mir-1302 microRNA precursor family: a 52-nucleotide sequence from Bos taurus. The family's consensus secondary structure was predicted with WAR. NCBI's taxonomy places the organism under Eukaryota, Opisthokonta, Sarcopterygii, Bovidae, Bos. For this family Rfam cites "Application of massively parallel sequencing to microRNA profiling and discovery in human embryonic stem cells" (Morin et al., Genome Res, 2008). A search with the family's covariance model found it, with a score of 64 bits.
RNA sequence: UUUUUAGUAUAAGUGUAUCCCACACAAUAUUUGGGACAUACUUGCACUAAAA
Number, nucleotide and partner (000 for none) at each position: 001u000002u000003u000004u000005u000006a048007g047008u046009a000010u044011a043012a042013g000014u040015g039016u038017a000018u036019c035020c034021c033022a031023c000024a000025c000026a000027a000028u000029a000030u000031u022032u000033g021034g020035g019036a018037c000038a016039u015040a014041c000042u012043u011044g010045c000046a008047c007048u006049a000050a000051a000052a000